Rfam assigns this 48-nucleotide RNA from Vagococcus allomyrinae to the family "uup RNA". It is annotated as a cis-regulatory element.

[Rfam]
RNA sequence: GACGAAACGGCUCCCUACAAAUGAAUUAGAUGAAGCAUUGUAUGGAGC
Numbered sequence: 001g002a003c004g005a006a007a008c009g010g011c012u013c014c015c016u017a018c019a020a021a022u023g024a025a026u027u028a029g030a031u032g033a034a035g036c037a038u039u040g041u042a043u044g045g046a047g048c
Base pairs, nucleotide, nucleotide: 011047012046013045014044017041018040019039